[Rfam]
RNA: mraW RNA
RNA sequence: ACCCGCCCGUCCGCCCCGACCUCCCCCCGUCCGUUCUGGCGCACUUCCCCGGUGCCAGAGGGUCGGUGGGGGAUCAGGCCGGACGGCCGGGACGCA
Numbered sequence: 001a002c003c004c005g006c007c008c009g010u011c012c013g014c015c016c017c018g019a020c021c022u023c024c025c026c027c028c029g030u031c032c033g034u035u036c037u038g039g040c041g042c043a044c045u046u047c048c049c050c051g052g053u054g055c056c057a058g059a060g061g062g063u064c065g066g067u068g069g070g071g072g073a074u075c076a077g078g079c080c081g082g083a084c085g086g087c088c089g090g091g092a093c094g095c096a
Base pairs, nucleotide, nucleotide: 010083011082012081013080015078016077018075019074021072022071023070024069025068027066028065029064031062032061034060035059036058037057038056039055040054041053042052